Shown here is a 94-nucleotide RNA sequence from Mesocricetus auratus, a member of the family "mir-802 microRNA precursor family". A search with the family's covariance model found it, with a score of 86 bits. The base pairs follow the family's consensus structure, which was predicted with RNAalifold. The organism belongs to Mesocricetus, within Eukaryota.
RNA sequence: GUUCUAUUAUUUGCCACCAGUAACAAAGAUUCAUCCUUGUGUUAAUCAUACAACACGGAGAGUCUUUGUCACUCAGUGUAGUUAAUAGACUCCU
Numbered sequence: 001g002u003u004c005u006a007u008u009a010u011u012u013g014c015c016a017c018c019a020g021u022a023a024c025a026a027a028g029a030u031u032c033a034u035c036c037u038u039g040u041g042u043u044a045a046u047c048a049u050a051c052a053a054c055a056c057g058g059a060g061a062g063u064c065u066u067u068g069u070c071a072c073u074c075a076g077u078g079u080a081g082u083u084a085a086u087a088g089a090c091u092c093c094u
Stems, first nucleotide, its partner, number of pairs: 004088006011081004019073003023069010034059003038055003041051002